[Rfam]
Nucleotides: 139
Stems, first nucleotide, its partner, number of pairs: 001061004006057002025052001028050001030048001032046002077134001079132004084126004090120006097112001099110002102107001
Number, partner (000 for none) and nucleotide at each position: 001061g002060u003059g004058u005000g006057c007056c008000u009000a010000g011000g012000u013000a014000a015000g016000a017000a018000g019000u020000u021000c022000a023000a024000g025052g026000u027000u028050c029000c030048c031000a032046g033045u034000g035000c036000u037000c038000a039000g040000c041000u042000c043000c044000u045033g046032c047000g048030g049000u050028g051000g052025c053000g054000c055000a056007g057006g058004a059003c060002g061001c062000a063000c064000a065000g066000u067000g068000u069000a070000c071000c072000c073000c074000c075000c076000c077134c078000c079132c080131c081130u082129c083000a084126g085125u086124u087123u088000a089000g090120g091119a092118g093117g094116g095115c096000a097112g098000c099110c100109u101000g102107a103000a104000g105000a106000a107102u108000g109100g110099g111000u112097c113000u114000g115095g116094c117093u118092c119091u120090u121000a122000a123087a124086g125085g126084c127000a128000c129082g130081a131080g132079g133000a134077g135000a136000c137000a138000a139000u

Notes
Shown here is a 139-nucleotide sequence from Dipodomys ordii, a member of the family "Small Cajal body specific RNA 11". The family has 24 seed sequences and 853 matches in Rfam 15.1. From the family's description: scaRNAs are a specific class of small nuclear RNAs which localise to the Cajal bodies and guide the modification of RNA polymerase II transcribed spliceosomal RNAs U1, U2, U4, U5 and U12. ACA57 belongs to the H/ACA box class of guide RNAs as it has the predicted hairpin-hinge-hairpin-tail structure, conserved H/ACA-box motifs and is found associated with GAR1. ACA57 is predicted to guide the pseudouridylation of the U5 spliceosomal RNA at position U43. The family's RNA type in Rfam is small Cajal body RNA. The base pairs follow the family's consensus structure, which was predicted with RNAalifold.